[Rfam]
RNA sequence: CACAGUCAUCCACCGAAGACACUCGCAGGCAGGAGCGGGGGACCCAGGUAAGUCGCCGCGCCGGACACCACCGGAGCGGCUCGGGGUGAAGCCGUGCCCGUCAGGGCCCGGCCGGGCACCUCCCCGCCCGAACCCGACAGCUCACCUCGCAGGCGU
Numbered sequence: 001c002a003c004a005g006u007c008a009u010c011c012a013c014c015g016a017a018g019a020c021a022c023u024c025g026c027a028g029g030c031a032g033g034a035g036c037g038g039g040g041g042a043c044c045c046a047g048g049u050a051a052g053u054c055g056c057c058g059c060g061c062c063g064g065a066c067a068c069c070a071c072c073g074g075a076g077c078g079g080c081u082c083g084g085g086g087u088g089a090a091g092c093c094g095u096g097c098c099c100g101u102c103a104g105g106g107c108c109c110g111g112c113c114g115g116g117c118a119c120c121u122c123c124c125c126g127c128c129c130g131a132a133c134c135c136g137a138c139a140g141c142u143c144a145c146c147u148c149g150c151a152g153g154c155g156u
Base pairs, nucleotide, nucleotide: 011155013153014152020032035150036149037148038147039146040145045083084135085134086133092111093110094109114129115128116127117126
Record summary
c-di-AMP riboswitch aptamer (ydaO/yuaA leader): a 156-nucleotide RNA sequence from Streptomyces sp. SID5910. The pairing is the family consensus, mapped onto this sequence. The organism belongs to Streptomyces, within Bacteria.